[Rfam]
RNA sequence: GCCAGGGUAGCAAUACCUGUGUCUAUAUGUGGCAUAAACAAUGUAGGUUGUGAUAGAUAGGAUAUGAGAGUUUGAUGAGACAGUUUGCUAAGAGUGUGCCCGCUCCAAACAAUGAGUUGCUAUGGUGGUAACCUAGUAAUAGGACUCCACCAGGGCAUUAAAGAGCUAAGGAAACGCCUCAGGCUGGCAACAGAACAGGGAAAACUUGCCGCUUGUUGUGGUGGAAGGAUAACAUACUCAUUAACUGUCAAACUAAUCGUUCUACUAUCAAAGCCAGACAUUGCUUUUU
Dot-bracket structure: ((((((.........)))............)))..((.((((((.(.(((((.((((........(.(.(((.(.(..(..((((.(....(((((((.((..((((.(((((((((((((.((((((...((((....))))...)))))).))))((...))(.((((......(((....(((....)))....)))....)))).))))))))))..)))).))....))))))).).)))).)..).).)))).))))).)))..)).)...)))))).))...
This 289-nucleotide RNA sequence from Tetrahymena thermophila belongs to the Rfam family "Metazoan signal recognition particle RNA". Rfam classes the family as a non-coding RNA gene. A reference for the family is Batey et al. (2001), "Structural and energetic analysis of RNA recognition by a universally conserved protein from the signal recognition particle", J Mol Biol. It scores 103 bits against the family's covariance model.